[Rfam]
RNA: Small Cajal body specific RNA 8
Organism: Cavia porcellus
RNA sequence: UGGAAGGCAAACACACAAAUUGGGCUGACAUGCUACUCUAAUUGCCCCCAGGCCUCCCUAGACUACAUUGCUUUUUGAUGACCAAGACAUUAAAUGAAAUGCAACGGACAGAUGUGGGGCAGUCAAUU
Numbered sequence: 001u002g003g004a005a006g007g008c009a010a011a012c013a014c015a016c017a018a019a020u021u022g023g024g025c026u027g028a029c030a031u032g033c034u035a036c037u038c039u040a041a042u043u044g045c046c047c048c049c050a051g052g053c054c055u056c057c058c059u060a061g062a063c064u065a066c067a068u069u070g071c072u073u074u075u076u077g078a079u080g081a082c083c084a085a086g087a088c089a090u091u092a093a094a095u096g097a098a099a100u101g102c103a104a105c106g107g108a109c110a111g112a113u114g115u116g117g118g119g120c121a122g123u124c125a126a127u128u
Base pairs, nucleotide, nucleotide: 002058003057005055006054007053016044017043018042022038023037024036068122069121070120071119072118073117074116082107083106088101089100
Dot-bracket structure: .((.(((........(((...(((...........)))...)))........))).)).........(((((((.......((....((..........))....))........)))))))......